[Rfam]
RNA sequence: UUAAUUCACUAGGGGAUCCCUUGAUAAGGGCUGAGAAUAAAGUAGUUACUUUUAAACCCUCAUAACCUGAACAGGUUCGCACCUGCGUAGGGAAGUGUUCGUUAUUCUUU
Number, nucleotide and partner (000 for none) at each position: 001u000002u000003a000004a000005u000006u000007c097008a096009c095010u094011a060012g059013g058014g057015g000016a000017u000018c030019c029020c028021u027022u000023g000024a000025u000026a000027a021028g020029g019030g018031c000032u000033g000034a000035g000036a000037a000038u000039a052040a051041a050042g049043u000044a000045g000046u000047u000048a000049c042050u041051u040052u039053u000054a000055a000056a000057c014058c013059c012060u011061c000062a000063u000064a000065a000066c091067c090068u089069g088070a000071a000072c085073a084074g083075g082076u000077u000078c000079g000080c000081a000082c075083c074084u073085g072086c000087g000088u069089a068090g067091g066092g000093a000094a010095g009096u008097g007098u000099u000100c000101g000102u000103u000104a000105u000106u000107c000108u000109u000110u000
RNA: TPP riboswitch aptamer (THI element)